[Rfam]
RNA sequence: CACCUUGCUGGUCGGGCCAUGGUUUAACGACAGCGGCAAGGGAAGAGGCUCCUACUGUGGGAUAGGUCUGAGACAGGAGCAAGGGCGGCGAAGUUAGCACCCCGUGACCGAAAAGGCUGACGAGU
Numbered sequence: 001c002a003c004c005u006u007g008c009u010g011g012u013c014g015g016g017c018c019a020u021g022g023u024u025u026a027a028c029g030a031c032a033g034c035g036g037c038a039a040g041g042g043a044a045g046a047g048g049c050u051c052c053u054a055c056u057g058u059g060g061g062a063u064a065g066g067u068c069u070g071a072g073a074c075a076g077g078a079g080c081a082a083g084g085g086c087g088g089c090g091a092a093g094u095u096a097g098c099a100c101c102c103c104g105u106g107a108c109c110g111a112a113a114a115g116g117c118u119g120a121c122g123a124g125u
Stems, first nucleotide, its partner, number of pairs: 003041008030058004048080006065109004083102003093121006

Shown here is a 125-nucleotide sequence, a member of the family "Betaproteobacteria-1 RNA". It is annotated as a small RNA.